[Rfam]
RNA: Small Cajal body specific RNA 6
Organism: Glaucidium brasilianum
RNA sequence: GGUCUGUGAUGAAUAGUAAAAGGUCUGAUUAUCCUAAGACUUGCACUUCCAUGACCUUUUCUCUCAGCAGUUUCUCACUAGUCACAGCACAGUAAUGGUGUGGCUGGCAGAGUGUUUGCUGACAGCUUGUGAUGUGUUCAGUUCAUGUUAACCUGCAGUAUUGGAGACAUGACUGGGAUCAGCAUCCAACAGUCUCACUUGAAGGAGUUUGGGGUCUUGGAGUGUUAUAACUGGACAUGUGAUCUGACUUCUCUGCUGAGACC
Number, nucleotide and partner (000 for none) at each position: 001g263002g262003u261004c260005u000006g000007u000008g000009a000010u000011g000012a000013a000014u000015a000016g000017u000018a000019a000020a000021a000022g000023g000024u000025c000026u000027g000028a000029u000030u000031a000032u000033c000034c000035u000036a000037a245038g244039a243040c000041u241042u000043g000044c000045a000046c000047u222048u221049c220050c219051a218052u000053g216054a215055c000056c000057u000058u000059u000060u000061c207062u206063c205064u204065c121066a120067g119068c118069a117070g116071u000072u000073u000074c000075u000076c000077a000078c107079u106080a105081g104082u103083c102084a101085c100086a099087g000088c000089a000090c000091a000092g000093u000094a000095a000096u000097g000098g000099u086100g085101u084102g083103g082104c081105u080106g079107g078108c000109a000110g000111a000112g000113u000114g000115u000116u070117u069118g068119c067120u066121g065122a000123c000124a000125g000126c000127u000128u000129g187130u000131g186132a185133u184134g183135u182136g000137u000138u000139c000140a000141g000142u000143u000144c171145a170146u169147g168148u167149u166150a000151a000152c164153c163154u000155g000156c000157a000158g000159u000160a000161u000162u000163g153164g152165a000166g149167a148168c147169a146170u145171g144172a000173c000174u000175g000176g000177g000178a000179u000180c000181a000182g135183c134184a133185u132186c131187c129188a000189a000190c000191a000192g000193u000194c000195u000196c000197a000198c000199u000200u000201g000202a000203a000204g064205g063206a062207g061208u000209u000210u000211g000212g000213g000214g000215u054216c053217u000218u051219g050220g049221a048222g047223u000224g000225u000226u000227a000228u000229a000230a000231c000232u000233g000234g000235a000236c000237a000238u000239g000240u000241g041242a000243u039244c038245u037246g000247a000248c000249u000250u000251c000252u000253c000254u000255g000256c000257u000258g000259a000260g004261a003262c002263c001